This 129-nucleotide RNA sequence from Entomomonas asaccharolytica belongs to the Rfam family "EFASI RNA". Rfam classes the family as a small RNA.
RNA sequence: UUUGACCGAUACCUAGGCUGGUCACCUAAACCAGUGGGAAUUACCUGUUUUUAACAGGCGGUUGUACUGAGUACAUCACCGUAUCCCCUACACCUCAACUUUGUUUCGCUCUGGUGCAGGUAUCGUUCA
Numbered sequence: 001u002u003u004g005a006c007c008g009a010u011a012c013c014u015a016g017g018c019u020g021g022u023c024a025c026c027u028a029a030a031c032c033a034g035u036g037g038g039a040a041u042u043a044c045c046u047g048u049u050u051u052u053a054a055c056a057g058g059c060g061g062u063u064g065u066a067c068u069g070a071g072u073a074c075a076u077c078a079c080c081g082u083a084u085c086c087c088c089u090a091c092a093c094c095u096c097a098a099c100u101u102u103g104u105u106u107c108g109c110u111c112u113g114g115u116g117c118a119g120g121u122a123u124c125g126u127u128c129a
Stems, first nucleotide, its partner, number of pairs: 002129001004127002007125008018034005036087004044058005059081004063075005

Notes: A search with the family's covariance model found it, with a score of 89 bits.